MIR2619 microRNA precursor family: a 170-nucleotide RNA sequence from Medicago truncatula.
The organism belongs to Medicago, within Eukaryota.
RNA sequence: AAAUCACCCCCUAAGUUUUGCAACUGUGGCAGUUUUGGCCCCCAAGGCCAAAAAAUAAAAUAAAAAAUAACACGUGGCACCUCACGUAGGGUGCCACAUCAGCGUAGACCGAGUCAAAAUUGGUCUUGGAGGUCAAAACUGCCACAGGUGCAAAACUUAGGGGGCGGUUU
Numbered sequence: 001a002a003a004u005c006a007c008c009c010c011c012u013a014a015g016u017u018u019u020g021c022a023a024c025u026g027u028g029g030c031a032g033u034u035u036u037g038g039c040c041c042c043c044a045a046g047g048c049c050a051a052a053a054a055a056u057a058a059a060a061u062a063a064a065a066a067a068u069a070a071c072a073c074g075u076g077g078c079a080c081c082u083c084a085c086g087u088a089g090g091g092u093g094c095c096a097c098a099u100c101a102g103c104g105u106a107g108a109c110c111g112a113g114u115c116a117a118a119a120u121u122g123g124u125c126u127u128g129g130a131g132g133u134c135a136a137a138a139c140u141g142c143c144a145c146a147g148g149u150g151c152a153a154a155a156c157u158u159a160g161g162g163g164g165c166g167g168u169u170u
Stems, first nucleotide, its partner, number of pairs: 001170002004167002007164002012159011024147017042129004072099001075096007
Dot-bracket structure: ((.((.((...(((((((((((.(((((((((((((((((.((((..........................(..(((((((........)))))))..)..........................)))).))))))))))))))))).)))))))))))...)).)).))
Overview: Its family is annotated with RISC complex and miRNA-mediated post-transcriptional gene silencing in the Gene Ontology. The match comes from Rfam's covariance-model search (151 bits). The family's consensus secondary structure was predicted with RNAalifold.